This 105-nucleotide part of an RNA from Methanopyrus kandleri belongs to the Rfam family "Archaeal large subunit ribosomal RNA". The sequence is in the family's curated seed alignment.

RNA sequence: AGUCUGCCGGGGCCCGCAAGGGAUGAAGCCCCCCGAAGGAAACCCCGGUGACGGGGGAGUACGAGGGGGGCCGACCGGGGUCCCGGCGUUCGUUUUGAAACACGA
Numbered sequence: 001a002g003u004c005u006g007c008c009g010g011g012g013c014c015c016g017c018a019a020g021g022g023a024u025g026a027a028g029c030c031c032c033c034c035g036a037a038g039g040a041a042a043c044c045c046c047g048g049u050g051a052c053g054g055g056g057g058a059g060u061a062c063g064a065g066g067g068g069g070g071c072c073g074a075c076c077g078g079g080g081u082c083c084c085g086g087c088g089u090u091c092g093u094u095u096u097g098a099a100a101c102a103c104g105a
Base pairs, nucleotide, nucleotide: 006087007086008085009084010083011082012081013080014079015078020076021075028071029070030069031068032067033066034065038062043056044055045054046053047052090105091104092103093102